[Rfam]
RNA sequence: CUUGGCUCUGUAGCUUUCCCUUUGUCAUCCUAUGCCUGAGAAAUUCAGGGAGGCUGGGACGGUGAAGGGAAGCCCACAGCGUUAUAGUU
Numbered sequence: 001c002u003u004g005g006c007u008c009u010g011u012a013g014c015u016u017u018c019c020c021u022u023u024g025u026c027a028u029c030c031u032a033u034g035c036c037u038g039a040g041a042a043a044u045u046c047a048g049g050g051a052g053g054c055u056g057g058g059a060c061g062g063u064g065a066a067g068g069g070a071a072g073c074c075c076a077c078a079g080c081g082u083u084a085u086a087g088u089u
Stems, first nucleotide, its partner, number of pairs: 017070006024063002028059005034054004
The family of this 89-nucleotide RNA sequence from Python bivittatus is "mir-204 microRNA precursor family". The base pairs follow the family's consensus structure, which was predicted with RNAalifold. NCBI's taxonomy places the organism under Eukaryota, Euteleostomi, Sauria, Unidentata, Python.